[Rfam]
RNA sequence: AAAUACGGCCCCGGACGACUCUACAUUAUUCGUUCGGUAUCCGUAAUGGAAAGGAGAGUAAUCAUCACCCGUAUCGGCUCGCGGUGCAGCAGUGUGGAGACCUGUUGUAAUACUUUCUGCCUUCAAUGCAGGCGUAAGUGAGCCGCGCCAUUAGCAAAGCUGGGCGCAGCAGAGCCGGGGAUAUGGCA
Number, nucleotide and partner (000 for none) at each position: 001a000002a000003a000004u000005a000006c000007g041008g040009c000010c000011c037012c036013g035014g034015a033016c032017g031018a030019c000020u000021c000022u000023a000024c000025a000026u000027u000028a000029u000030u018031c017032g016033u015034u014035c013036g012037g011038u000039a000040u008041c007042c000043g000044u000045a000046a000047u000048g000049g000050a000051a000052a000053g000054g000055a000056g000057a000058g000059u000060a000061a000062u000063c000064a000065u000066c000067a000068c000069c084070c083071g082072u081073a000074u178075c177076g176077g175078c174079u173080c172081g072082c071083g070084g069085u109086g108087c107088a106089g105090c104091a103092g102093u000094g101095u100096g000097g000098a000099g000100a095101c094102c092103u091104g090105u089106u088107g087108u086109a085110a000111u000112a139113c138114u137115u136116u000117c134118u000119g133120c132121c000122u000123u000124c000125a000126a000127u000128g000129c000130a000131g000132g120133c119134g117135u000136a115137a114138g113139u112140g000141a000142g170143c169144c000145g167146c166147g165148c164149c163150a000151u000152u000153a161154g160155c159156a000157a000158a000159g155160c154161u153162g000163g149164g148165c147166g146167c145168a000169g143170c142171a000172g080173a079174g078175c077176c076177g075178g074179g000180g000181a000182u000183a000184u000185g000186g000187c000188a000
Shown here is a 188-nucleotide RNA, a member of the family "malK-I RNA".
It is one of the family's seed sequences.